[Rfam]
RNA sequence: GAGUACAUUUAACAGUGCAGUACAAUCUGGCCGUUGCUAUGGUAAUCCUGUUUAGUACGAGAGGAACCGCAGGUUCAGACAAUUGGUAUAUGUGCCUGGCCGAAAGGCCAAUGGUGCGAAGCUACCAUCUGAGGGAUUAAGACUGAACGCCUCUAAGUCUGAAUCCCGUCCAGAUUUGCAACGGUACAUUCUGUGCCCGUCACGUGGCGAGGCAAGCUUACGAAUUCCUUCCGGUGUUUAGACUAGACCAUGUGUCUGGCUAGGCCCGGUCGGUCUGGUGUAAUGCCAGCGCGAUGACCAAAACUGUAUCUCGGACUUCGAGGUAUGGAGGUCGAUACGAUAUCCAAAUGCGGUAUGAGCGUGAGGGUACUAAAUCGUUUGUAGACGACUUAAAGUUUUGUCGGGGAGACGUAAGUGUUCGAGCAGCUACCACACUGCGAGACAUUGAGUCCUAUCCCUACUUGACGUAAUGAUUUGA
Numbered sequence: 001g002a003g004u005a006c007a008u009u010u011a012a013c014a015g016u017g018c019a020g021u022a023c024a025a026u027c028u029g030g031c032c033g034u035u036g037c038u039a040u041g042g043u044a045a046u047c048c049u050g051u052u053u054a055g056u057a058c059g060a061g062a063g064g065a066a067c068c069g070c071a072g073g074u075u076c077a078g079a080c081a082a083u084u085g086g087u088a089u090a091u092g093u094g095c096c097u098g099g100c101c102g103a104a105a106g107g108c109c110a111a112u113g114g115u116g117c118g119a120a121g122c123u124a125c126c127a128u129c130u131g132a133g134g135g136a137u138u139a140a141g142a143c144u145g146a147a148c149g150c151c152u153c154u155a156a157g158u159c160u161g162a163a164u165c166c167c168g169u170c171c172a173g174a175u176u177u178g179c180a181a182c183g184g185u186a187c188a189u190u191c192u193g194u195g196c197c198c199g200u201c202a203c204g205u206g207g208c209g210a211g212g213c214a215a216g217c218u219u220a221c222g223a224a225u226u227c228c229u230u231c232c233g234g235u236g237u238u239u240a241g242a243c244u245a246g247a248c249c250a251u252g253u254g255u256c257u258g259g260c261u262a263g264g265c266c267c268g269g270u271c272g273g274u275c276u277g278g279u280g281u282a283a284u285g286c287c288a289g290c291g292c293g294a295u296g297a298c299c300a301a302a303a304c305u306g307u308a309u310c311u312c313g314g315a316c317u318u319c320g321a322g323g324u325a326u327g328g329a330g331g332u333c334g335a336u337a338c339g340a341u342a343u344c345c346a347a348a349u350g351c352g353g354u355a356u357g358a359g360c361g362u363g364a365g366g367g368u369a370c371u372a373a374a375u376c377g378u379u380u381g382u383a384g385a386c387g388a389c390u391u392a393a394a395g396u397u398u399u400g401u402c403g404g405g406g407a408g409a410c411g412u413a414a415g416u417g418u419u420c421g422a423g424c425a426g427c428u429a430c431c432a433c434a435c436u437g438c439g440a441g442a443c444a445u446u447g448a449g450u451c452c453u454a455u456c457c458c459u460a461c462u463u464g465a466c467g468u469a470a471u472g473a474u475u476u477g478a
Stems, first nucleotide, its partner, number of pairs: 030185008040172003045075001047073005076131004084124003091118005097110005133167003140160005195368004201363005372476005378392001381389001399467005404458003408451002415445004420441001423438004